[Rfam]
RNA sequence: ACGUGUAAAAGCCAAACCCGUUGCGAGGCGGGGACGGAAAACCACAGGUCUUGACCUUCUUUACAGGGUCCAAGAUAGCUGGGCUGUCACC
Numbered sequence: 001a002c003g004u005g006u007a008a009a010a011g012c013c014a015a016a017c018c019c020g021u022u023g024c025g026a027g028g029c030g031g032g033g034a035c036g037g038a039a040a041a042c043c044a045c046a047g048g049u050c051u052u053g054a055c056c057u058u059c060u061u062u063a064c065a066g067g068g069u070c071c072a073a074g075a076u077a078g079c080u081g082g083g084c085u086g087u088c089a090c091c
Stems, first nucleotide, its partner, number of pairs: 012037002017032006040085001042083002045081003048076003053070006
A member of the RNA family "c-di-GMP-I riboswitch aptamer" from Methyloglobulus morosus, 91 nucleotides long. It scores 57 bits against the family's covariance model. NCBI's taxonomy places the organism under Bacteria, Pseudomonadota, Gammaproteobacteria, Methyloglobulus, Methyloglobulus morosus.